Shown here is a 183-nucleotide sequence from Planosporangium mesophilum, a member of the family "c-di-AMP riboswitch aptamer (ydaO/yuaA leader)".
A search with the family's covariance model found it, with a score of 66 bits.
The source organism's lineage runs through Bacteria, Actinomycetes, Micromonosporales, Micromonosporaceae and Planosporangium.
RNA sequence: CGGUCGGUAACGCCGAGUCCUGCCGCCGACCGCUGGGCACCGUCAAUCAGGCAGGAGCGGGGGACCCACACGUUCCUCGGUACGCACGAUCCUCGUUGCGUACCUCGGGGUGAAGCCGCCCAGCGGCCGGGCUCCUCGGCCCGAACCCGACAGCUCACCUCGUAGGCGUGGAGGUUUUUACAU
Numbered sequence: 001c002g003g004u005c006g007g008u009a010a011c012g013c014c015g016a017g018u019c020c021u022g023c024c025g026c027c028g029a030c031c032g033c034u035g036g037g038c039a040c041c042g043u044c045a046a047u048c049a050g051g052c053a054g055g056a057g058c059g060g061g062g063g064a065c066c067c068a069c070a071c072g073u074u075c076c077u078c079g080g081u082a083c084g085c086a087c088g089a090u091c092c093u094c095g096u097u098g099c100g101u102a103c104c105u106c107g108g109g110g111u112g113a114a115g116c117c118g119c120c121c122a123g124c125g126g127c128c129g130g131g132c133u134c135c136u137c138g139g140c141c142c143g144a145a146c147c148c149g150a151c152a153g154c155u156c157a158c159c160u161c162g163u164a165g166g167c168g169u170g171g172a173g174g175u176u177u178u179u180a181c182a183u
Stems, first nucleotide, its partner, number of pairs: 011168004018056007057163006067107001108148003116126004129142004